[Rfam]
RNA sequence: GGCGGUAUAGCCAAGUGGUAAGGCAGGGGACUGCAAAUCCCCGAUCCCCAGUUCGAAUCUGGGUGCCGCCU
Number, nucleotide and partner (000 for none) at each position: 001g070002g069003c068004g067005g066006u065007a064008u000009a000010g024011c023012c022013a000014a000015g000016u000017g000018g000019u000020a000021a000022g012023g011024c010025a000026g042027g041028g040029g039030a038031c000032u000033g000034c000035a000036a000037a000038u030039c029040c028041c027042c026043g000044a000045u000046c000047c063048c062049c061050a060051g059052u000053u000054c000055g000056a000057a000058u000059c051060u050061g049062g048063g047064u007065g006066c005067c004068g003069c002070c001071u000

Description:
The family of this 71-nucleotide RNA from Thermohalobacter berrensis is "tRNA". Rfam's curators write: Transfer RNA (tRNA) molecules are approximately 80 nucleotides in length. Their secondary structure includes four short double-helical elements and three loops (D, anti-codon, and T loops). Further hydrogen bonds mediate the characteristic L-shaped molecular structure. tRNAs have two regions of fundamental functional importance: the anti-codon, which is responsible for specific mRNA codon recognition, and the 3' end, to which the tRNAs corresponding amino acid is attached (by aminoacyl-tRNA synthetases). tRNAs cope with the degeneracy of the genetic code in two manners: having more than one tRNA (with a specific anti-codon) for a particular amino acid; and 'wobble' base-pairing, i.e. permitting non-standard base-pairing at the 3rd anti-codon position. The family's consensus secondary structure is taken from published work. It scores 65 bits against the family's covariance model. Lineage of the source: Bacteria > Tissierellia > Tissierellales > Thermohalobacteraceae > Thermohalobacter.